[Rfam]
RNA sequence: GUCAGACCUGCGAGGAGAUGGCCAUCCAAGGUAAGUCCUCCCAUAGGGAGGCGCCAUCUCCUGCCGCCAAUCGGCGGUCUUGCAGGUCGGGAGGU
Numbered sequence: 001g002u003c004a005g006a007c008c009u010g011c012g013a014g015g016a017g018a019u020g021g022c023c024a025u026c027c028a029a030g031g032u033a034a035g036u037c038c039u040c041c042c043a044u045a046g047g048g049a050g051g052c053g054c055c056a057u058c059u060c061c062u063g064c065c066g067c068c069a070a071u072c073g074g075c076g077g078u079c080u081u082g083c084a085g086g087u088c089g090g091g092a093g094g095u
Stems, first nucleotide, its partner, number of pairs: 005088009014061009035052001037051005063078005
Notes
Shown here is a 95-nucleotide RNA sequence, a member of the family "DUF1874 RNA".